[Rfam]
A member of the RNA family "c-di-GMP-I riboswitch aptamer" from Pelotomaculum thermopropionicum, 138 nucleotides long.
The match comes from Rfam's covariance-model search (64 bits).

RNA sequence: UCCACGGAAGGGCAAACCUCCCGAAAGGGUGGGACGCAAAGCUAUCGGGCCUAAAGCCGGGUAUUGGCGCAAGGACAGCUGCCUUAAAAAGGUGCGGCCUUGGCGCCUGUAUUUGGCCAGGGCGGCCGGGUUGCCAAG
Numbered sequence: 001u002c003c004a005c006g007g008a009a010g011g012g013c014a015a016a017c018c019u020c021c022c023g024a025a026a027g028g029g030u031g032g033g034a035c036g037c038a039a040a041g042c043u044a045u046c047g048g049g050c051c052u053a054a055a056g057c058c059g060g061g062u063a064u065u066g067g068c069g070c071a072a073g074g075a076c077a078g079c080u081g082c083c084u085u086a087a088a089a090a091g092g093u094g095c096g097g098c099c100u101u102g103g104c105g106c107c108u109g110u111a112u113u114u115g116g117c118c119a120g121g122g123c124g125g126c127c128g129g130g131u132u133g134c135c136a137a138g
Base pairs, nucleotide, nucleotide: 012037013036017032018031020029021028022027040132041131042130043129046128047127048126049123050122051121056117057116058115059114060113061112062111063110064109